[Rfam]
Record summary: Rfam assigns this 119-nucleotide RNA sequence from Phyllobacterium sp. YR531 to the family "Alphaproteobacterial ar14". Pairs were carried over by alignment from the consensus structure.
RNA sequence: GGUAUUCUCCUGCGGCAUUCCUCCUCCCAGCCGCCGGGGACGCGAGAACCGGCACCUCCUCCCGCCUCGUUCUCGCAAUAAUGGAAAAGGCCGGGUCCUCCCCCCGGCCUUUUUUCUUU
Numbered sequence: 001g002g003u004a005u006u007c008u009c010c011u012g013c014g015g016c017a018u019u020c021c022u023c024c025u026c027c028c029a030g031c032c033g034c035c036g037g038g039g040a041c042g043c044g045a046g047a048a049c050c051g052g053c054a055c056c057u058c059c060u061c062c063c064g065c066c067u068c069g070u071u072c073u074c075g076c077a078a079u080a081a082u083g084g085a086a087a088a089g090g091c092c093g094g095g096u097c098c099u100c101c102c103c104c105c106g107g108c109c110u111u112u113u114u115u116c117u118u119u
Stems, first nucleotide, its partner, number of pairs: 007039004012034005043075007051066002084114011
Source information
Rfam's curators write: Smr14C2 was renamed NfeR1 (Nodule Formation Efficiency RNA) highly expressed in salt stress and during the symbiotic interaction on legume roots. Taxonomically the source falls in Phyllobacterium (Bacteria, Alphaproteobacteria, Hyphomicrobiales, Phyllobacteriaceae).